[Rfam]
RNA sequence: GACCCGCUAGCUCAGUUGGUAGAGCAUCUGACUUUUAAUCAGAGGGUCAGAGGUUCGAAUCCUCUGCGGGUCA
Numbered sequence: 001g002a003c004c005c006g007c008u009a010g011c012u013c014a015g016u017u018g019g020u021a022g023a024g025c026a027u028c029u030g031a032c033u034u035u036u037a038a039u040c041a042g043a044g045g046g047u048c049a050g051a052g053g054u055u056c057g058a059a060u061c062c063u064c065u066g067c068g069g070g071u072c073a
Base pairs, nucleotide, nucleotide: 001072002071003070004069005068006067007066010025011024012023013022027043028042029041030040031039049065050064051063052062053061
A member of the RNA family "tRNA" from Candidatus Izimoplasma sp. HR1, 73 nucleotides long. The match comes from Rfam's covariance-model search (76 bits). On this family, see Hou, Trends Biochem Sci 1993: "The tertiary structure of tRNA and the development of the genetic code". Rfam describes the family as follows. Transfer RNA (tRNA) molecules are approximately 80 nucleotides in length. Their secondary structure includes four short double-helical elements and three loops (D, anti-codon, and T loops). Further hydrogen bonds mediate the characteristic L-shaped molecular structure. tRNAs have two regions of fundamental functional importance: the anti-codon, which is responsible for specific mRNA codon recognition, and the 3' end, to which the tRNAs corresponding amino acid is attached (by aminoacyl-tRNA synthetases). tRNAs cope with the degeneracy of the genetic code in two manners: having more than one tRNA (with a specific anti-codon) for a particular amino acid; and 'wobble' base-pairing, i.e. permitting non-standard base-pairing at the 3rd anti-codon position.